[Rfam]
RNA sequence: AGCUUGUCAAUGAUGUUUCAUAUUAAAAACAUCUGAACAUAUGAAUUUCAUAGUGAUUUCAGUGUAUUAUUGAGAUGAGCU
Number, nucleotide and partner (000 for none) at each position: 001a000002g080003c079004u078005u077006g076007u075008c074009a000010a000011u000012g000013a000014u000015g000016u000017u000018u000019c000020a000021u000022a000023u000024u000025a000026a000027a000028a000029a000030c000031a000032u000033c000034u000035g000036a000037a000038c000039a000040u000041a000042u000043g000044a000045a000046u000047u000048u000049c000050a000051u000052a000053g000054u000055g000056a000057u000058u000059u000060c000061a000062g000063u000064g000065u000066a000067u000068u000069a000070u000071u000072g000073a000074g008075a007076u006077g005078a004079g003080c002081u000
Background: The record is an 81-nucleotide RNA from Crypturellus soui, which matches "Small nucleolar RNA SNORD72" in Rfam. Taxonomically the source falls in Crypturellus (Eukaryota, Teleostomi, Sarcopterygii, Aves). Rfam 15.1 lists 726 matches to the family in 499 species. A search with the family's covariance model found it, with a score of 78 bits. The literature on the family includes a 2001 paper in EMBO J by Huttenhofer et al., "RNomics: an experimental approach that identifies 201 candidates for novel, small, non-messenger RNAs in mouse". Pairs were carried over by alignment from the consensus structure.